The record is a 232-nucleotide sequence from Clostridiales bacterium PH28_bin88, which matches "Group II catalytic intron D1-D4-6" in Rfam. Rfam describes the family as follows. Group II introns are found in rRNA, tRNA and mRNA of organelles in fungi, plants and protists, and also in mRNA in bacteria. The pairing is the family consensus, mapped onto this sequence. On this family, see Chu et al., EMBO J 2001: "Control of branch-site choice by a group II intron". Lineage of the source: Bacteria > Bacillati > Bacillota > Clostridia > Eubacteriales.
[Rfam]
RNA sequence: CGAAUCCCACCUGGGAAAGGCCUAGCCAGCCACCAGUAGCGAGUCUUGGGAACUACUGAGUAAUCAGUGGGACUAAGCGUAGACAGCGAGGUAGUAGGCCGAAAGCGAAAGCUGAAGGGAUUGAGCCCCGAAAUCAUAAAUUGGGAGGGCCGAUGCUGUCGUAGAAGCAUAAGGCAACACAGCGACCGCCGCAAUGGCAAGGAGGUCAAUGCAUCCCCGGGGUCAGAGACCU
Dot-bracket structure: ...........((.....(((.[.[[..)))..)).(.((..((((((((..(((((((....)))))))..))...)).)))).)).)................................((.((((((............((((.((((..((((........))))...)))....((..((((.((......]].])).))))..))).))))))))))).)......